[Rfam]
RNA sequence: CCCUCGCCCAAAGGAUCGCAAUCAAAGCUUACACACAGAUCGUCCUCGCGGUGAUCAUCACACAAACGCUUUGGGAGAAAGUCCCCGGACCGCCCACGUUCCACGCUGGGACUUGCGGAAACGCGCCGCCAUAGAAGCACAUUUCAUACGCGGCUUACGCGCCUCGCCCCGUUUUGACUCCUUAUCUAAUCGACGCUCGCAAUCGCCUGGGAAACCUCGUGAGGAUGUUCGGAGAUGAUGAGAGGGACAGGGGCUGAGGACAAUGAUUCGUCGAGGUUGAUAGACAUUGCGAUUGCUUCGGUGACGAAGUAACUCGAUGGGGCUUAUUCUUGAUGCGAGG
Numbered sequence: 001c002c003c004u005c006g007c008c009c010a011a012a013g014g015a016u017c018g019c020a021a022u023c024a025a026a027g028c029u030u031a032c033a034c035a036c037a038g039a040u041c042g043u044c045c046u047c048g049c050g051g052u053g054a055u056c057a058u059c060a061c062a063c064a065a066a067c068g069c070u071u072u073g074g075g076a077g078a079a080a081g082u083c084c085c086c087g088g089a090c091c092g093c094c095c096a097c098g099u100u101c102c103a104c105g106c107u108g109g110g111a112c113u114u115g116c117g118g119a120a121a122c123g124c125g126c127c128g129c130c131a132u133a134g135a136a137g138c139a140c141a142u143u144u145c146a147u148a149c150g151c152g153g154c155u156u157a158c159g160c161g162c163c164u165c166g167c168c169c170c171g172u173u174u175u176g177a178c179u180c181c182u183u184a185u186c187u188a189a190u191c192g193a194c195g196c197u198c199g200c201a202a203u204c205g206c207c208u209g210g211g212a213a214a215c216c217u218c219g220u221g222a223g224g225a226u227g228u229u230c231g232g233a234g235a236u237g238a239u240g241a242g243a244g245g246g247a248c249a250g251g252g253g254c255u256g257a258g259g260a261c262a263a264u265g266a267u268u269c270g271u272c273g274a275g276g277u278u279g280a281u282a283g284a285c286a287u288u289g290c291g292a293u294u295g296c297u298u299c300g301g302u303g304a305c306g307a308a309g310u311a312a313c314u315c316g317a318u319g320g321g322g323c324u325u326a327u328u329c330u331u332g333a334u335g336c337g338a339g340g
Stems, first nucleotide, its partner, number of pairs: 002340006009332003014294006022075001023073006038056007079325003083322004114125004150163001153160002179243002183237004223230002296309005
The record is a 340-nucleotide RNA from Carpinus fangiana, which matches "RNase MRP" in Rfam. Rfam's curators write: RNase MRP is an enzymatically active ribonucleoprotein with two distinct roles in eukaryotes. Rfam classes the family as a ribozyme. Gene Ontology terms of the family: ribonuclease MRP activity, rRNA processing and ribonuclease MRP complex. The match comes from Rfam's covariance-model search (94 bits).